The family of this 152-nucleotide sequence from Enterovibrio coralii is "DABA-DC-AT RNA". Taxonomically the source falls in Enterovibrio (Bacteria, Pseudomonadota, Gammaproteobacteria, Vibrionaceae). Pairs were carried over by alignment from the consensus structure, which is taken from published work.
RNA sequence: ACAAUCUCAGGCAUUGCGUUUCCUGAGACAUACGCGACACAAUGUUGAAGAAGUUGUUGUCGCAGGUAGGUAUUGGAGAGUGGUUCUCCAAUAGAAGGGCAUUGAUAGAGCUGUCUGACUCAAGGGGUCGGGGCAUAUUGAGGAACCCAACA
Numbered sequence: 001a002c003a004a005u006c007u008c009a010g011g012c013a014u015u016g017c018g019u020u021u022c023c024u025g026a027g028a029c030a031u032a033c034g035c036g037a038c039a040c041a042a043u044g045u046u047g048a049a050g051a052a053g054u055u056g057u058u059g060u061c062g063c064a065g066g067u068a069g070g071u072a073u074u075g076g077a078g079a080g081u082g083g084u085u086c087u088c089c090a091a092u093a094g095a096a097g098g099g100c101a102u103u104g105a106u107a108g109a110g111c112u113g114u115c116u117g118a119c120u121c122a123a124g125g126g127g128u129c130g131g132g133g134c135a136u137a138u139u140g141a142g143g144a145a146c147c148c149a150a151c152a
Stems, first nucleotide, its partner, number of pairs: 006027006034063006040056003071093010114132006